[Rfam]
RNA: Flavo-1 RNA
Organism: Lacinutrix sp. 5H-3-7-4
RNA sequence: CGUUAGUUUGCGUUAGCGAUUGAUGUGGCAUCCUUUUUUGCCAUUAAAAGCAAAAAAGAUAUAACGGAAAGCGCGACCCUUG
Numbered sequence: 001c002g003u004u005a006g007u008u009u010g011c012g013u014u015a016g017c018g019a020u021u022g023a024u025g026u027g028g029c030a031u032c033c034u035u036u037u038u039u040g041c042c043a044u045u046a047a048a049a050g051c052a053a054a055a056a057a058g059a060u061a062u063a064a065c066g067g068a069a070a071g072c073g074c075g076a077c078c079c080u081u082g
Stems, first nucleotide, its partner, number of pairs: 016074003020070002025065002030060003036055006